[Rfam]
The family of this 272-nucleotide RNA from Sciurus carolinensis is "Mason-Pfizer monkey virus packaging signal". The literature on the family includes a 2004 paper in Virus Res by Mustafa et al., "Mutational analysis of the predicted secondary RNA structure of the Mason-Pfizer monkey virus packaging signal". This family represents a group of sequences that are related to the Mason-Pfizer monkey virus (MPMV) packaging signal. The base pairs follow the family's consensus structure, which was predicted with PFOLD.
RNA sequence: UGGCACCCAACAUGGGGCAUGGACAUGGGGGAAAUCACGAGGGGGCGUUUGAUAGUUCAGCCGAACACAGCAGAAGUCAGUUGAACAAAGAUCACCAUGUGAACCUGCCACGUCGCUCUUAAAGGUACAGUUAUGCCAAACUAUGGGACAAGAUUUAAGUAAGCAUAAAGUUUUUGUUAAGCAAUUGAAAGAAGCCUUAAAGACACGGGGAGUAAGGGUUAAAAGUAAUGAGCUUUUUAAGUUUUUUAAACUUAUCAAGGACAACUGCCCAU
Dot-bracket structure: .....(((...(((.........)))..)))....(......).....................................((..(....(..(..(.((.........)).)..))...)...)).....((.(.((.(....).))).))....(((((.................................)).))).......(((((((..((.(((.......))).))......))))))).........(.((.(....).)).)
NCBI's taxonomy places the organism under Eukaryota, Eumetazoa, Gnathostomata, Euarchontoglires, Sciurus. The match comes from Rfam's covariance-model search (134 bits).